[Rfam]
RNA sequence: AGUACCUUUAAUUCGGUCCAGAGAGACUGACAAGGUUAGCGGAAUGUAUUAUAAAUAAAGUUAUAUUAAUAAUUUAAUAUGUUUUUAAAUUAUUAAUAAGUUAAGUAAUUUAUAACGCAUAAAAUUAAGCUUCCUUUCAGGUUUCUGAAAGGAAGCUUUUGUG
Numbered sequence: 001a002g003u004a005c006c007u008u009u010a011a012u013u014c015g016g017u018c019c020a021g022a023g024a025g026a027c028u029g030a031c032a033a034g035g036u037u038a039g040c041g042g043a044a045u046g047u048a049u050u051a052u053a054a055a056u057a058a059a060g061u062u063a064u065a066u067u068a069a070u071a072a073u074u075u076a077a078u079a080u081g082u083u084u085u086u087a088a089a090u091u092a093u094u095a096a097u098a099a100g101u102u103a104a105g106u107a108a109u110u111u112a113u114a115a116c117g118c119a120u121a122a123a124a125u126u127a128a129g130c131u132u133c134c135u136u137u138c139a140g141g142u143u144u145c146u147g148a149a150a151g152g153a154a155g156c157u158u159u160u161g162u163g
Base pairs, nucleotide, nucleotide: 004036005035006034007033008032013030014029015028016027017026018025066096067095068094069093070092071091072090073089074088075087076086077085127158128157129156130155131154132153133152134151135150136149137148138147139146140145

PyrR binding site: a 163-nucleotide RNA sequence from Clostridium sp. HMP27. NCBI's taxonomy places the organism under Bacteria, Bacillati, Clostridia, Clostridiaceae, Clostridium. The family has 41 seed sequences and 1,498 matches in Rfam 15.1. Rfam links the family to the GO terms pyrimidine nucleobase transport and pyrimidine nucleobase biosynthetic process. The base pairs follow the family's consensus structure, which is taken from published work. About the family: This family represents the PyrR binding site and terminator structure. A search with the family's covariance model found it, with a score of 55 bits.